[Rfam]
RNA sequence: CGGGCGCGGAGAGGCGGCGGCCAUGUUUUUCCUAACCCUAUUUGAGAUGAGCGUAGGCGUAGUUGCUCCCGCCGCGCUGUUUUUCUCGCUGACUUUCAGCCGGCGGAAGAGCUUGGGUUCACCUCACCAUCCCGCCUGAGGUAAACAAACAAACAAAAAAUGUCGGUGGCUGGCCGCUCUGCCUCUCCCGGGGCCCUGCGGAGGUUGCCGGCGCGCCCAGUGCGCUCUCGCAGCCCGCCUGGAGGCCGCGGUGGGCCCGGGGCUUCUCUGGAGGCGCCCACUGCCGCCGCGAAGAGUUCGCGCUCUGUCAGCCGCGGGCACUGGGGCGCUGCGGGCGAGGUCCGGCUCGCUGGCCGCAGGGAAAGGAACGGAGCGUGGUCCCGGAGCGUGGCUUCCCUGAGCGGUGGGAAGUGCACCCGCAACCGGCUCACACACAU
Numbered sequence: 001c002g003g004g005c006g007c008g009g010a011g012a013g014g015c016g017g018c019g020g021c022c023a024u025g026u027u028u029u030u031c032c033u034a035a036c037c038c039u040a041u042u043u044g045a046g047a048u049g050a051g052c053g054u055a056g057g058c059g060u061a062g063u064u065g066c067u068c069c070c071g072c073c074g075c076g077c078u079g080u081u082u083u084u085c086u087c088g089c090u091g092a093c094u095u096u097c098a099g100c101c102g103g104c105g106g107a108a109g110a111g112c113u114u115g116g117g118u119u120c121a122c123c124u125c126a127c128c129a130u131c132c133c134g135c136c137u138g139a140g141g142u143a144a145a146c147a148a149a150c151a152a153a154c155a156a157a158a159a160a161u162g163u164c165g166g167u168g169g170c171u172g173g174c175c176g177c178u179c180u181g182c183c184u185c186u187c188c189c190g191g192g193g194c195c196c197u198g199c200g201g202a203g204g205u206u207g208c209c210g211g212c213g214c215g216c217c218c219a220g221u222g223c224g225c226u227c228u229c230g231c232a233g234c235c236c237g238c239c240u241g242g243a244g245g246c247c248g249c250g251g252u253g254g255g256c257c258c259g260g261g262g263c264u265u266c267u268c269u270g271g272a273g274g275c276g277c278c279c280a281c282u283g284c285c286g287c288c289g290c291g292a293a294g295a296g297u298u299c300g301c302g303c304u305c306u307g308u309c310a311g312c313c314g315c316g317g318g319c320a321c322u323g324g325g326g327c328g329c330u331g332c333g334g335g336c337g338a339g340g341u342c343c344g345g346c347u348c349g350c351u352g353g354c355c356g357c358a359g360g361g362a363a364a365g366g367a368a369c370g371g372a373g374c375g376u377g378g379u380c381c382c383g384g385a386g387c388g389u390g391g392c393u394u395c396c397c398u399g400a401g402c403g404g405u406g407g408g409a410a411g412u413g414c415a416c417c418c419g420c421a422a423c424c425g426g427c428u429c430a431c432a433c434a435c436a437u
Base pairs, nucleotide, nucleotide: 005192007190008188009187010186011185012184013183014182015181016180017179019175020174021173022172023171065112066111067110068109070105071104072103073102074101076100077099078098079097088167089166090165091164092163093162094160095159096158195360196359197358198357199356200355201354210341212339214337215336216335217334218333222329223328224327225326226325227324228323234318235317236316237315238314247291248290249289250288251287254285255284256283259279260278261277293306294305295304296303371429372428373427374426376425377424378423379422382419388416389415390414391412394409395408396407397406
This 437-nucleotide RNA sequence from Jaculus jaculus belongs to the Rfam family "Vertebrate telomerase RNA". The match comes from Rfam's covariance-model search (236 bits). Taxonomically the source falls in Jaculus (Eukaryota, Teleostomi, Eutheria, Myomorpha). Rfam 15.1 lists 523 matches to the family in 477 species. From the family's description: Telomerase is a ribonucleoprotein reverse transcriptase that synthesises telomeric DNA. Telomerase RNAs differ greatly in sequence and structure between vertebrates, ciliates and yeasts, but they share a 5' pseudoknot structure close to the template sequence. Vertebrate telomerase RNAs have a 3' H/ACA snoRNA-like domain. Rfam links the family to the GO terms telomere maintenance via telomerase, telomerase catalytic core complex and telomerase activity. Rfam classes the family as a non-coding RNA gene.